[Rfam]
Shown here is a 340-nucleotide part of an RNA, a member of the family "Bacterial large subunit ribosomal RNA".
Clan: LSU clan.
RNA sequence: CGAGACAACUUUCUCUAAGGAACUCGGCAAAAUGGCCCCGUAACUUCGGGAGAAGGGGUGCCUCCUCACACGGGAGGUCGCAGCGACCAGGCCCAGGCGACUGUUUACCAAAAACACAGGUCUCCGCAAAGUCGUAAGACCAUGUAUGGGGGCUGACGCCUGCCCAGUGCCGGAAGGUUAAGGAAGUUGGUGACCUGAUGACGGGUAAGCCGGCAACCAAAGCCCCGGUGAACGGCGGCCGUAACUAUAACGGUCCUAAGGUAGCGAAAUUCCUUGUCGGGUAAGUUCCGACCCGCACGAAAGGCGUAACGAUCUGGGCGCUGUCUCGGAGAAAGACUCG
Numbered sequence: 001c002g003a004g005a006c007a008a009c010u011u012u013c014u015c016u017a018a019g020g021a022a023c024u025c026g027g028c029a030a031a032a033u034g035g036c037c038c039c040g041u042a043a044c045u046u047c048g049g050g051a052g053a054a055g056g057g058g059u060g061c062c063u064c065c066u067c068a069c070a071c072g073g074g075a076g077g078u079c080g081c082a083g084c085g086a087c088c089a090g091g092c093c094c095a096g097g098c099g100a101c102u103g104u105u106u107a108c109c110a111a112a113a114a115c116a117c118a119g120g121u122c123u124c125c126g127c128a129a130a131g132u133c134g135u136a137a138g139a140c141c142a143u144g145u146a147u148g149g150g151g152g153c154u155g156a157c158g159c160c161u162g163c164c165c166a167g168u169g170c171c172g173g174a175a176g177g178u179u180a181a182g183g184a185a186g187u188u189g190g191u192g193a194c195c196u197g198a199u200g201a202c203g204g205g206u207a208a209g210c211c212g213g214c215a216a217c218c219a220a221a222g223c224c225c226c227g228g229u230g231a232a233c234g235g236c237g238g239c240c241g242u243a244a245c246u247a248u249a250a251c252g253g254u255c256c257u258a259a260g261g262u263a264g265c266g267a268a269a270u271u272c273c274u275u276g277u278c279g280g281g282u283a284a285g286u287u288c289c290g291a292c293c294c295g296c297a298c299g300a301a302a303g304g305c306g307u308a309a310c311g312a313u314c315u316g317g318g319c320g321c322u323g324u325c326u327c328g329g330a331g332a333a334a335g336a337c338u339c340g
Stems, first nucleotide, its partner, number of pairs: 001340004009335008018326003035059005044049001060078006067072001079083001091319007098311002102116003119154008127144001131140003157306004162236003167233002169229005176224003182218002186214006194205004237255006256260001266293001276292006